A member of the RNA family "anti ponA RNA" from Metapseudomonas resinovorans, 294 nucleotides long. Lineage of the source: Bacteria > Pseudomonadati > Gammaproteobacteria > Pseudomonadales > Metapseudomonas resinovorans. Gene Ontology term of the family: response to antibiotic. The match comes from Rfam's covariance-model search (194 bits). For this family Rfam cites "Expression of antisense small RNAs in response to stress in Pseudomonas aeruginosa" (Gomez-Lozano et al., BMC Genomics, 2014). Rfam's curators write: Transcribed antisense to the penicillin-binding protein 1A gene called ponA. It was identified by RNAseq and the expression was validated by 5' and 3' RACE experiments.
RNA sequence: GAAAUUGUCGUCUUCCGCGGCCAGCAGGGCGCGGAUGAAGUCCGGCGGAAUGUCGGCGAAACGCACCGGAGAGCGGCGCAUCUCGCCGAACUCCGCGAUUAGCUUGCCGUCGCUGCUGUACACGCGCAGCGGGAUCUGUAGCUGGAUUCGGCGCAGCGAAUCAACAGACGGCAGGCUGGGGCUAAGAUAGAGGUAAGCGCCGCUGAAACUGAGCAAUAGGCCACAGAAAACGGCAACGAAGGACCACCAGAAAAACUUCAGCAGGCGAAUCAAGGCGUGUGGAUUUCCAGGCAA
Numbered sequence: 001g002a003a004a005u006u007g008u009c010g011u012c013u014u015c016c017g018c019g020g021c022c023a024g025c026a027g028g029g030c031g032c033g034g035a036u037g038a039a040g041u042c043c044g045g046c047g048g049a050a051u052g053u054c055g056g057c058g059a060a061a062c063g064c065a066c067c068g069g070a071g072a073g074c075g076g077c078g079c080a081u082c083u084c085g086c087c088g089a090a091c092u093c094c095g096c097g098a099u100u101a102g103c104u105u106g107c108c109g110u111c112g113c114u115g116c117u118g119u120a121c122a123c124g125c126g127c128a129g130c131g132g133g134a135u136c137u138g139u140a141g142c143u144g145g146a147u148u149c150g151g152c153g154c155a156g157c158g159a160a161u162c163a164a165c166a167g168a169c170g171g172c173a174g175g176c177u178g179g180g181g182c183u184a185a186g187a188u189a190g191a192g193g194u195a196a197g198c199g200c201c202g203c204u205g206a207a208a209c210u211g212a213g214c215a216a217u218a219g220g221c222c223a224c225a226g227a228a229a230a231c232g233g234c235a236a237c238g239a240a241g242g243a244c245c246a247c248c249a250g251a252a253a254a255a256c257u258u259c260a261g262c263a264g265g266c267g268a269a270u271c272a273a274g275g276c277g278u279g280u281g282g283a284u285u286u287c288c289a290g291g292c293a294a
Stems, first nucleotide, its partner, number of pairs: 010172003014168002017165001020162001024046002027043004047084002050081003054078002057075002062069001086095001088093001103158001105155003109147003115142006122135001123133001125131002176290006183283001198267004202262006214238001217235001221232001
The base pairs follow the family's consensus structure, which was predicted with RNAfold.